[Rfam]
RNA sequence: CAAUCCACCCAGAGAUGGAUGGAUGAACCGCAAGAAGUCAGCAGAGGCCAUAGUACUGGUGAGAGAAAAAAACAAUCAGGAAGGGC
Numbered sequence: 001c002a003a004u005c006c007a008c009c010c011a012g013a014g015a016u017g018g019a020u021g022g023a024u025g026a027a028c029c030g031c032a033a034g035a036a037g038u039c040a041g042c043a044g045a046g047g048c049c050a051u052a053g054u055a056c057u058g059g060u061g062a063g064a065g066a067a068a069a070a071a072a073c074a075a076u077c078a079g080g081a082a083g084g085g086c
Stems, first nucleotide, its partner, number of pairs: 001025002004023004009018003038045002047086003056079005
RNA: Group II catalytic intron D1-D4-1
Organism: Cloacibacillus evryensis